[Rfam]
RNA sequence: GGGUCAGGUGGAAUAAUUCUUAUCUGUUUCUCCUUUUGAAGGGCAGAUUAGAACAUGAUAAUUGGAGUUCACAUGAUACGUGAUUAAAGUCUCUGGAUAAUCACAACUUACAAUAUCCUGAUUAUUCCACCUUAU
Numbered sequence: 001g002g003g004u005c006a007g008g009u010g011g012a013a014u015a016a017u018u019c020u021u022a023u024c025u026g027u028u029u030c031u032c033c034u035u036u037u038g039a040a041g042g043g044c045a046g047a048u049u050a051g052a053a054c055a056u057g058a059u060a061a062u063u064g065g066a067g068u069u070c071a072c073a074u075g076a077u078a079c080g081u082g083a084u085u086a087a088a089g090u091c092u093c094u095g096g097a098u099a100a101u102c103a104c105a106a107c108u109u110a111c112a113a114u115a116u117c118c119u120g121a122u123u124a125u126u127c128c129a130c131c132u133u134a135u
Stems, first nucleotide, its partner, number of pairs: 024046003028043004033038001075093002078090002081086001097125007